[Rfam]
RNA: mir-9195 microRNA precursor family
Organism: Myotis lucifugus
RNA sequence: AGAGGCCCUCCGUGGCCGGGGUGGGAUGCUUGCCUUGUCGCCGUGGCGACGAGGCAAGCAUUCUGCCAGGCCACUCAUGCUGCCCAC
Numbered sequence: 001a002g003a004g005g006c007c008c009u010c011c012g013u014g015g016c017c018g019g020g021g022u023g024g025g026a027u028g029c030u031u032g033c034c035u036u037g038u039c040g041c042c043g044u045g046g047c048g049a050c051g052a053g054g055c056a057a058g059c060a061u062u063c064u065g066c067c068a069g070g071c072c073a074c075u076c077a078u079g080c081u082g083c084c085c086a087c
Stems, first nucleotide, its partner, number of pairs: 004084003012074006020067014037050005